Shown here is an 87-nucleotide RNA sequence from Gossypium raimondii, a member of the family "MIR7486 microRNA precursor family". Gene Ontology terms of the family: RISC complex and miRNA-mediated post-transcriptional gene silencing.
RNA sequence: CACGUCAGUGCGCUUUGCUGACGUGGACACAAAUCGCGCUUAUGUGGACGCGAUUUGUUGCCACGUCAGCAGAGCGCGCUAAUGUGG
Numbered sequence: 001c002a003c004g005u006c007a008g009u010g011c012g013c014u015u016u017g018c019u020g021a022c023g024u025g026g027a028c029a030c031a032a033a034u035c036g037c038g039c040u041u042a043u044g045u046g047g048a049c050g051c052g053a054u055u056u057g058u059u060g061c062c063a064c065g066u067c068a069g070c071a072g073a074g075c076g077c078g079c080u081a082a083u084g085u086g087g
Base pairs, nucleotide, nucleotide: 001086002085003084004083005082007080008079009078010077011076012075013074014073015072016071017070018069019068020067021066023064024063025062026061029058030057031056032055033054034053035052036051037050038049040047041046